[Rfam]
RNA sequence: AAUUAGUUAUACGACUGACGGAAAAGUGGAGUUUACCACGUGAAGUAUAAUGAUUAUUAUAAGCCGACCGUCUGGGCAUGAGCC
Numbered sequence: 001a002a003u004u005a006g007u008u009a010u011a012c013g014a015c016u017g018a019c020g021g022a023a024a025a026g027u028g029g030a031g032u033u034u035a036c037c038a039c040g041u042g043a044a045g046u047a048u049a050a051u052g053a054u055u056a057u058u059a060u061a062a063g064c065c066g067a068c069c070g071u072c073u074g075g076g077c078a079u080g081a082g083c084c
Stems, first nucleotide, its partner, number of pairs: 004053001006051007015042001017072005026039004061079001063077003
Dot-bracket structure: ...(.(((((((..(.[[[[[....((((......))))..)..))))))).).......(.(((..]]]]]..))).).....

This 84-nucleotide RNA sequence from Anaerofustis stercorihominis belongs to the Rfam family "ZMP/ZTP riboswitch aptamer (pfl RNA motif)". The source organism's lineage runs through Bacteria, Bacillati, Clostridia, Eubacteriaceae and Anaerofustis stercorihominis. Pairs were carried over by alignment from the consensus structure, which is taken from published work.